[Rfam]
RNA sequence: GGAAUAUAAGAACCCGUCUCUUAACUUUUAACUAAGAACCGGCUCUUAAAUAAGAGAUUUAAGAACCAGUUCUUAAUUUUUUUACUAUUUAAGAGCCGGUUCUUAGUUUUUUUAGUUAAAAAUUAAGAGACGGGUUCUUAUAUUCC
Numbered sequence: 001g002g003a004a005u006a007u008a009a010g011a012a013c014c015c016g017u018c019u020c021u022u023a024a025c026u027u028u029u030a031a032c033u034a035a036g037a038a039c040c041g042g043c044u045c046u047u048a049a050a051u052a053a054g055a056g057a058u059u060u061a062a063g064a065a066c067c068a069g070u071u072c073u074u075a076a077u078u079u080u081u082u083u084a085c086u087a088u089u090u091a092a093g094a095g096c097c098g099g100u101u102c103u104u105a106g107u108u109u110u111u112u113u114a115g116u117u118a119a120a121a122a123u124u125a126a127g128a129g130a131c132g133g134g135u136u137c138u139u140a141u142a143u144u145c146c
Stems, first nucleotide, its partner, number of pairs: 001146024026121006032106021
This 146-nucleotide RNA sequence from Brassica oleracea belongs to the Rfam family "MIR9563 microRNA precursor family". The organism belongs to Brassica oleracea, within Eukaryota.